[Rfam]
RNA sequence: GGUUCUGUAGUGUAGUGGUUAUCACGUUCGCUUCACACGCGAAAGGUCGCCGGUUCGAACCCGGCCAGAAUCA
Numbered sequence: 001g002g003u004u005c006u007g008u009a010g011u012g013u014a015g016u017g018g019u020u021a022u023c024a025c026g027u028u029c030g031c032u033u034c035a036c037a038c039g040c041g042a043a044a045g046g047u048c049g050c051c052g053g054u055u056c057g058a059a060c061c062c063g064g065c066c067a068g069a070a071u072c073a
Stems, first nucleotide, its partner, number of pairs: 001072007010025003027043005049065005

Shown here is a 73-nucleotide RNA from Panagrolaimus sp. JU765, a member of the family "tRNA". A reference for the family is Hou (1993), "The tertiary structure of tRNA and the development of the genetic code", Trends Biochem Sci. NCBI's taxonomy places the organism under Eukaryota, Metazoa, Bilateria, Panagrolaimomorpha, Panagrolaimus.